This 74-nucleotide RNA from Anguilla anguilla belongs to the Rfam family "mir-148/mir-152 microRNA precursor family". The base pairs follow the family's consensus structure, which was predicted with RNAalifold.

[Rfam]
RNA sequence: CCGGGCCCAAGUUCUGUGAUACACUCCGGCUCUCAGACUGUGGCAGUCAGUGCAUAACAGAACUUUGGCUCGGG
Numbered sequence: 001c002c003g004g005g006c007c008c009a010a011g012u013u014c015u016g017u018g019a020u021a022c023a024c025u026c027c028g029g030c031u032c033u034c035a036g037a038c039u040g041u042g043g044c045a046g047u048c049a050g051u052g053c054a055u056a057a058c059a060g061a062a063c064u065u066u067g068g069c070u071c072g073g074g
Stems, first nucleotide, its partner, number of pairs: 004070004009065008022052004028048004
Taxonomically the source falls in Anguilla (Eukaryota, Bilateria, Teleostei, Anguillidae).